[Rfam]
Nucleotides: 135
Base pairs, nucleotide, nucleotide: 002057003056007049008048012044013043014042015041017039020035021034022033023032072127074125075124076123077122078121079120083117084116085114087112088111090109091108093106094105095104
Number, partner (000 for none) and nucleotide at each position: 001000a002057c003056c004000u005000u006000g007049u008048g009000g010000u011000u012044c013043c014042u015041a016000g017039a018000g019000a020035c021034g022033g023032c024000u025000g026000g027000a028000c029000c030000g031000u032023g033022c034021u035020g036000a037000u038000c039017u040000g041015u042014g043013g044012g045000u046000u047000u048008u049007g050000a051000u052000u053000g054000a055000c056003g057002g058000g059000c060000a061000g062000a063000u064000a065000u066000u067000a068000a069000c070000g071000u072127c073000u074125g075124c076123g077122a078121u079120u080000u081000a082000u083117g084116c085114a086000u087112g088111g089000g090109a091108g092000c093106u094105a095104c096000c097000a098000c099000u100000c101000c102000a103000a104095g105094u106093a107000a108091c109090u110000u111088c112087c113000u114085u115000a116084g117083c118000c119000c120079g121078g122077u123076u124075g125074u126000u127072g128000a129000g130000a131000c132000a133000u134000u135000c